[Rfam]
RNA sequence: CUCUUAUCGAGAGCGGUGGAGGGACUGGCCCUGUGAAGCCGCGGCAACCGGAAAAGAACUCUUUUCGUCUAGGUGCCAAGCCCAGCCCUUUGAAGUUAAGGGGAGGAUGAGAG
Numbered sequence: 001c002u003c004u005u006a007u008c009g010a011g012a013g014c015g016g017u018g019g020a021g022g023g024a025c026u027g028g029c030c031c032u033g034u035g036a037a038g039c040c041g042c043g044g045c046a047a048c049c050g051g052a053a054a055a056g057a058a059c060u061c062u063u064u065u066c067g068u069c070u071a072g073g074u075g076c077c078a079a080g081c082c083c084a085g086c087c088c089u090u091u092g093a094a095g096u097u098a099a100g101g102g103g104a105g106g107a108u109g110a111g112a113g
Base pairs, nucleotide, nucleotide: 001113002112003111004110005109006108007107008106013042014041015040016039017038021031022030023029025085026084027083028082043077044076045075046074048073049072051069052068081105086102087101088100089099090098
The family of this 113-nucleotide sequence from Candidatus Methylacidiphilum fumarolicum is "SAM riboswitch aptamer (S box leader)". The family's consensus secondary structure is taken from published work. Taxonomically the source falls in Candidatus Methylacidiphilum fumarolicum (Bacteria, Pseudomonadati, Methylacidiphilae, Methylacidiphilum (ex Ratnadevi et al. 2023)).